The family of this 66-nucleotide sequence from Bombyx mori is "mir-2 microRNA precursor family". Pairs were carried over by alignment from the consensus structure, which was predicted with PFOLD. Rfam's curators put it in the seed alignment. The source organism's lineage runs through Eukaryota, Hexapoda, Endopterygota, Lepidoptera and Bombyx.
RNA sequence: GAUCCUGUCAAAGCGGCGGUGAAAUGUCUCCUCCCUUUCAUAUCACAGCCACUUUGAUGUGGUCGG
Numbered sequence: 001g002a003u004c005c006u007g008u009c010a011a012a013g014c015g016g017c018g019g020u021g022a023a024a025u026g027u028c029u030c031c032u033c034c035c036u037u038u039c040a041u042a043u044c045a046c047a048g049c050c051a052c053u054u055u056g057a058u059g060u061g062g063u064c065g066g
Stems, first nucleotide, its partner, number of pairs: 006059008015050003019046004025042003